[Rfam]
RNA sequence: GUAAUAUAAGAUACAGUCUCUUAUUUUUUAACUAAAAAAACUAAGAGACAUCUCUUAAAUAAGAGAUCAUAAGAAACGUCUCUUAGUUUUUUUUAGUUAAAAGUUAAGAGAUUGUAUCUUAUAUUAC
Numbered sequence: 001g002u003a004a005u006a007u008a009a010g011a012u013a014c015a016g017u018c019u020c021u022u023a024u025u026u027u028u029u030a031a032c033u034a035a036a037a038a039a040a041c042u043a044a045g046a047g048a049c050a051u052c053u054c055u056u057a058a059a060u061a062a063g064a065g066a067u068c069a070u071a072a073g074a075a076a077c078g079u080c081u082c083u084u085a086g087u088u089u090u091u092u093u094u095a096g097u098u099a100a101a102a103g104u105u106a107a108g109a110g111a112u113u114g115u116a117u118c119u120u121a122u123a124u125u126a127c
Stems, first nucleotide, its partner, number of pairs: 001127023025103015041086007
MIR9563 microRNA precursor family: a 127-nucleotide RNA sequence from Brassica oleracea. Pairs were carried over by alignment from the consensus structure, which was predicted with RNAalifold. The match comes from Rfam's covariance-model search (104 bits). NCBI's taxonomy places the organism under Eukaryota, Streptophyta, Spermatophyta, Brassica, Brassica oleracea.